[Rfam]
Overview: This 167-nucleotide sequence from a Propionibacteriales bacterium belongs to the Rfam family "Group II catalytic intron D1-D4-4". The base pairs follow the family's consensus structure. The organism belongs to Propionibacteriales, within Bacteria. About the family: Group II introns are found in rRNA, tRNA and mRNA of organelles in fungi, plants and protists, and also in mRNA in bacteria.
RNA sequence: UUGCCGGUGUGAGUCCGGUCCGGGUAGCUGUCAGGAGGCCCGGUAGCAGACUGGCGGUUUCGUGGGGAAACCUGCGGGGUCGAAGCCCAGUGUCGAAAGCCCUGGAACUCCGGCAACACCGUGAUCUUCUACGGCAAGGACGGCGACCUCACCGGCCCGGACCGCGA
Numbered sequence: 001u002u003g004c005c006g007g008u009g010u011g012a013g014u015c016c017g018g019u020c021c022g023g024g025u026a027g028c029u030g031u032c033a034g035g036a037g038g039c040c041c042g043g044u045a046g047c048a049g050a051c052u053g054g055c056g057g058u059u060u061c062g063u064g065g066g067g068a069a070a071c072c073u074g075c076g077g078g079g080u081c082g083a084a085g086c087c088c089a090g091u092g093u094c095g096a097a098a099g100c101c102c103u104g105g106a107a108c109u110c111c112g113g114c115a116a117c118a119c120c121g122u123g124a125u126c127u128u129c130u131a132c133g134g135c136a137a138g139g140a141c142g143g144c145g146a147c148c149u150c151a152c153c154g155g156c157c158c159g160g161a162c163c164g165c166g167a
Stems, first nucleotide, its partner, number of pairs: 020043005050091005055082006064073001066071001100139002103137001144159002